[Rfam]
RNA: Small nucleolar RNA SNORA33
Organism: Heterocephalus glaber
RNA sequence: AAGCCAGCUAUUGAAUCUGCUUAUCUGUACGUAUUUUUGCAGAAAUUCAGAAAAAGCUGGCAAGAGUAAUGCCAUGAGCCUUAAAGACAUCAAAGUUAUUAAGGUCCCUGGAAAUGGCUACACAU
Numbered sequence: 001a002a003g004c005c006a007g008c009u010a011u012u013g014a015a016u017c018u019g020c021u022u023a024u025c026u027g028u029a030c031g032u033a034u035u036u037u038u039g040c041a042g043a044a045a046u047u048c049a050g051a052a053a054a055a056g057c058u059g060g061c062a063a064g065a066g067u068a069a070u071g072c073c074a075u076g077a078g079c080c081u082u083a084a085a086g087a088c089a090u091c092a093a094a095g096u097u098a099u100u101a102a103g104g105u106c107c108c109u110g111g112a113a114a115u116g117g118c119u120a121c122a123c124a125u
Stems, first nucleotide, its partner, number of pairs: 003061005016043005071118004078105007086097003